The record is a 47-nucleotide RNA sequence, which matches "Acido-Lenti-1 RNA" in Rfam.
RNA sequence: CCGGGAGCUUACGCCACCCGGCUAAGUUAUUUCGCCGCUGCGCGGCU
Dot-bracket structure: (((((.((....))..)))))............(((((...))))).
Numbered sequence: 001c002c003g004g005g006a007g008c009u010u011a012c013g014c015c016a017c018c019c020g021g022c023u024a025a026g027u028u029a030u031u032u033c034g035c036c037g038c039u040g041c042g043c044g045g046c047u
Stems, first nucleotide, its partner, number of pairs: 001021005007014002034046005
By type it is a small RNA.